Rfam assigns this 129-nucleotide RNA from Bucco capensis to the family "Small nucleolar RNA SNORA69". Rfam's curators write: U69 is a member of the H/ACA class of small nucleolar RNAs (snoRNAs) which act as guides in the the modification of uridines to pseudouridines.
RNA sequence: AAAGCAGGCUGCAAUUGCAGUGCUUCAUUCUGUGGGAGUACUGCCAUUUUCCUGCUGAGAGUAAUCCUGUUAAUGCUGGUUUUGGUUUCACCUAUACAGUGGUGAAACCAUUUCUUAACAUGGACAAGU
Numbered sequence: 001a002a003a004g005c006a007g008g009c010u011g012c013a014a015u016u017g018c019a020g021u022g023c024u025u026c027a028u029u030c031u032g033u034g035g036g037a038g039u040a041c042u043g044c045c046a047u048u049u050u051c052c053u054g055c056u057g058a059g060a061g062u063a064a065u066c067c068u069g070u071u072a073a074u075g076c077u078g079g080u081u082u083u084g085g086u087u088u089c090a091c092c093u094a095u096a097c098a099g100u101g102g103u104g105a106a107a108c109c110a111u112u113u114c115u116u117a118a119c120a121u122g123g124a125c126a127a128g129u
Base pairs, nucleotide, nucleotide: 003056004055005054006053007052008051018043019042020041021040022039023038024037025036026035067123068120069119070118071117072116083110084109085108086107087106088105089104090103091102092101

The family's consensus secondary structure was predicted with PFOLD.